Rfam assigns this 69-nucleotide RNA from Operophtera brumata to the family "mir-33 microRNA precursor family". For this family Rfam cites "Direct sequencing and expression analysis of a large number of miRNAs in Aedes aegypti and a multi-species survey of novel mosquito miRNAs" (Li et al., BMC Genomics, 2009). Taxonomically the source falls in Operophtera (Eukaryota, Ecdysozoa, Panarthropoda, Obtectomera). Gene Ontology terms of the family: gene silencing by miRNA and RISC complex. It scores 58 bits against the family's covariance model.
[Rfam]
RNA sequence: CGAAAGUGCAUUGUAGUUGCAUUGCACUUGUUAUAUAGUCUGUGCAAUAUCACUACAAGGCAAUUGUCG
Numbered sequence: 001c002g003a004a005a006g007u008g009c010a011u012u013g014u015a016g017u018u019g020c021a022u023u024g025c026a027c028u029u030g031u032u033a034u035a036u037a038g039u040c041u042g043u044g045c046a047a048u049a050u051c052a053c054u055a056c057a058a059g060g061c062a063a064u065u066g067u068c069g
Stems, first nucleotide, its partner, number of pairs: 001069003006065001007062003011058006019050001021048007